[Rfam]
Rfam assigns this 275-nucleotide RNA from Lactuca saligna to the family "RNase MRP". It is annotated as a ribozyme. The family's consensus secondary structure is taken from published work. NCBI's taxonomy places the organism under Eukaryota, Streptophyta, Embryophyta, Euphyllophyta, Lactuca.
RNA sequence: AGACCAAUGGACGAUGUGAUUGGGCCAUGGAUCCAUUUAUUUGGAUUCGGGUUCAGGAAAGUCCCCGGGCCCUCUAUCGCAGAGAUGCGGAUCCGGAAACGGGUUAUGCUUCGGAGCAAUUGAAUCUAGUUUGUAUCAGAAAUGGUUCAAACGGGCUGAGACAAGUGUGGAGCCUCAUGGAUUCUGAACGCCCGAAGUUGAUUUGGCCGAAGUUAUAUACAGUCAUUCACAUGGUCGUCUGUGACUAACUGAACGGGGCUUAUGAUCUAUUGGUC
Number, nucleotide and partner (000 for none) at each position: 001a000002g275003a274004c273005c272006a271007a270008u269009g268010g267011a266012c000013g000014a232015u231016g230017u229018g228019a227020u000021u055022g054023g053024g052025c051026c050027a000028u000029g048030g047031a046032u045033c044034c043035a042036u000037u000038u000039a000040u000041u000042u035043g034044g033045a032046u031047u030048c029049g000050g026051g025052u024053u023054c022055a021056g000057g000058a000059a261060a260061g259062u000063c258064c257065c256066c255067g000068g000069g000070c000071c000072c000073u000074c000075u000076a000077u000078c089079g088080c087081a086082g000083a000084g000085a000086u081087g080088c079089g078090g105091a104092u103093c102094c101095g100096g000097a000098a000099a000100c095101g094102g093103g092104u091105u090106a000107u000108g000109c000110u000111u000112c000113g000114g000115a000116g000117c000118a000119a000120u000121u000122g000123a000124a000125u000126c000127u000128a000129g000130u000131u000132u000133g000134u000135a000136u187137c186138a185139g184140a183141a182142a000143u180144g000145g178146u000147u000148c000149a000150a000151a000152c000153g175154g174155g173156c172157u000158g000159a000160g000161a000162c000163a168164a000165g000166u000167g000168u163169g000170g000171a000172g156173c155174c154175u153176c000177a000178u145179g000180g143181a000182u141183u140184c139185u138186g137187a136188a000189c000190g000191c000192c000193c000194g000195a000196a000197g000198u000199u000200g000201a000202u000203u000204u000205g000206g000207c000208c000209g000210a000211a000212g000213u000214u000215a000216u000217a000218u000219a000220c000221a000222g000223u000224c000225a000226u000227u019228c018229a017230c016231a015232u014233g000234g245235u244236c243237g242238u000239c000240u000241g000242u237243g236244a235245c234246u000247a000248a000249c000250u000251g000252a000253a000254c000255g066256g065257g064258g063259c061260u060261u059262a000263u000264g000265a000266u011267c010268u009269a008270u007271u006272g005273g004274u003275c002